[Rfam]
The record is a 142-nucleotide RNA from Zingiber officinale, which matches "Small nucleolar RNA snoR77" in Rfam. Gene Ontology terms of the family: nucleolus and RNA processing. On this family, see Marker et al., Curr Biol 2002: "Experimental RNomics: identification of 140 candidates for small non-messenger RNAs in the plant Arabidopsis thaliana". A search with the family's covariance model found it, with a score of 79 bits.
RNA sequence: AGGCAGCCUCUUUGCCUACAAUAUAAACAAAACUAUGGCAUCGGCGGUGUUAUUUUGCUCGGAUAAGAAAUCAUGCUACGGCUCCUUCAGAUCGGCGGAGAGAUUCUCUCUUUGAUGUUGGUCUAAUAAGCUUUAACACAUU
Numbered sequence: 001a002g003g004c005a006g007c008c009u010c011u012u013u014g015c016c017u018a019c020a021a022u023a024u025a026a027a028c029a030a031a032a033c034u035a036u037g038g039c040a041u042c043g044g045c046g047g048u049g050u051u052a053u054u055u056u057g058c059u060c061g062g063a064u065a066a067g068a069a070a071u072c073a074u075g076c077u078a079c080g081g082c083u084c085c086u087u088c089a090g091a092u093c094g095g096c097g098g099a100g101a102g103a104u105u106c107u108c109u110c111u112u113u114g115a116u117g118u119u120g121g122u123c124u125a126a127u128a129a130g131c132u133u134u135a136a137c138a139c140a141u142u
Base pairs, nucleotide, nucleotide: 002051003050004049005048007047008046009044010043013040014039015038016037077135078134081131082130083129089124090123091122092121093120095118096117097116100110101109102108